[Rfam]
RNA sequence: CACUCUGGAAAGCAGGAUGCCGGACGGUCGGGAUUGACCACGGCACGCCUCACCGAAGGAGUAAGCCGGUGCCCAUCCCAGGGGCUGGUGAAUCUCUCAGGUCCGCGACAGAGGG
Numbered sequence: 001c002a003c004u005c006u007g008g009a010a011a012g013c014a015g016g017a018u019g020c021c022g023g024a025c026g027g028u029c030g031g032g033a034u035u036g037a038c039c040a041c042g043g044c045a046c047g048c049c050u051c052a053c054c055g056a057a058g059g060a061g062u063a064a065g066c067c068g069g070u071g072c073c074c075a076u077c078c079c080a081g082g083g084g085c086u087g088g089u090g091a092a093u094c095u096c097u098c099a100g101g102u103c104c105g106c107g108a109c110a111g112a113g114g115g
Stems, first nucleotide, its partner, number of pairs: 001115001003113005014050003052102003055098002059096003065089006